Rfam assigns this 87-nucleotide RNA from Myotis brandtii to the family "mir-9195 microRNA precursor family". The base pairs follow the family's consensus structure, which was predicted with RNAalifold. Rfam 15.1 lists 438 matches to the family in 7 species. The source organism's lineage runs through Eukaryota, Opisthokonta, Vertebrata, Laurasiatheria and Myotis.

RNA sequence: AGAGGCCCUCUGUGGCCGGGGUGGAACACUUGCCUCAUCACUGCGGUGACGAAGCAAGCAUUCUGCCAGGCCGCUAAUGCUGCCCGA
Numbered sequence: 001a002g003a004g005g006c007c008c009u010c011u012g013u014g015g016c017c018g019g020g021g022u023g024g025a026a027c028a029c030u031u032g033c034c035u036c037a038u039c040a041c042u043g044c045g046g047u048g049a050c051g052a053a054g055c056a057a058g059c060a061u062u063c064u065g066c067c068a069g070g071c072c073g074c075u076a077a078u079g080c081u082g083c084c085c086g087a
Stems, first nucleotide, its partner, number of pairs: 004084003012074006020067007029058005038049004
Dot-bracket structure: ...(((.....((((((..(((((((..(((((....((((....))))....)))))..))))))).)))))).......)))...